RNA sequence: AGCUGCUGAUGAAACCUGAUUCUGCCAAAUGACCUACUAUGAUAUUACCCUUUCCGUUCCACAUGUUUUCUGAAGCU
Number, nucleotide and partner (000 for none) at each position: 001a077002g076003c075004u074005g000006c000007u000008g000009a000010u000011g000012a000013a000014a000015c000016c000017u000018g000019a000020u000021u000022c000023u000024g000025c000026c000027a000028a000029a000030u000031g000032a000033c000034c000035u000036a000037c000038u000039a000040u000041g000042a000043u000044a000045u000046u000047a000048c000049c000050c000051u000052u000053u000054c000055c000056g000057u000058u000059c000060c000061a000062c000063a000064u000065g000066u000067u000068u000069u000070c000071u000072g000073a000074a004075g003076c002077u001